[Rfam]
RNA sequence: GAUUUCAGUUGAAAAAGUCAUGAACAUAUAAGUUGUAAAACUGAUCAAGAUCUACAACUUUUAUUUUGGUUAUUUGUUCAUCCGAUAAAAUAAUAGUAACAUUGUUCAUAAAUUUUACAUCUCUCUUAUGGUUUAUGAAACUAUAUGAGAGAUAUGUGAAUUUUGUGAACAAUGUUACUAUCACUUUGUCGGAUGAACAAAUAACCAAAAUAAAAGUUGUAGAUCUUGAUGAGUUGUAUAACUUGUAUGUUCAUGACUUUUUCAACGGAAAUC
Numbered sequence: 001g002a003u004u005u006c007a008g009u010u011g012a013a014a015a016a017g018u019c020a021u022g023a024a025c026a027u028a029u030a031a032g033u034u035g036u037a038a039a040a041c042u043g044a045u046c047a048a049g050a051u052c053u054a055c056a057a058c059u060u061u062u063a064u065u066u067u068g069g070u071u072a073u074u075u076g077u078u079c080a081u082c083c084g085a086u087a088a089a090a091u092a093a094u095a096g097u098a099a100c101a102u103u104g105u106u107c108a109u110a111a112a113u114u115u116u117a118c119a120u121c122u123c124u125c126u127u128a129u130g131g132u133u134u135a136u137g138a139a140a141c142u143a144u145a146u147g148a149g150a151g152a153u154a155u156g157u158g159a160a161u162u163u164u165g166u167g168a169a170c171a172a173u174g175u176u177a178c179u180a181u182c183a184c185u186u187u188g189u190c191g192g193a194u195g196a197a198c199a200a201a202u203a204a205c206c207a208a209a210a211u212a213a214a215a216g217u218u219g220u221a222g223a224u225c226u227u228g229a230u231g232a233g234u235u236g237u238a239u240a241a242c243u244u245g246u247a248u249g250u251u252c253a254u255g256a257c258u259u260u261u262u263c264a265a266c267g268g269a270a271a272u273c
Stems, first nucleotide, its partner, number of pairs: 014260008023251002026248002030244008039235004044230010055219013069205007077197005083191007091183001094180006101173012114160002117157004122152001129143006
Dot-bracket structure: .............((((((((.((.((..((((((((.((((.((((((((((.(((((((((((((.(((((((.(((((.(((((((.(..((((((.((((((((((((.((.((((.(......((((((...))))))........).)))).)).)))))))))))).))))))..).))))))).))))).))))))).))))))))))))).)))))))))).)))).))))))))..)).)).)))))))).............

Rfam assigns this 273-nucleotide sequence from Miscanthus lutarioriparius to the family "MIR821 microRNA precursor family". Rfam links the family to the GO terms RISC complex and miRNA-mediated post-transcriptional gene silencing. A reference for the family is Luo et al. (2006), "Rice embryogenic calli express a unique set of microRNAs, suggesting regulatory roles of microRNAs in plant post-embryogenic development", FEBS Lett.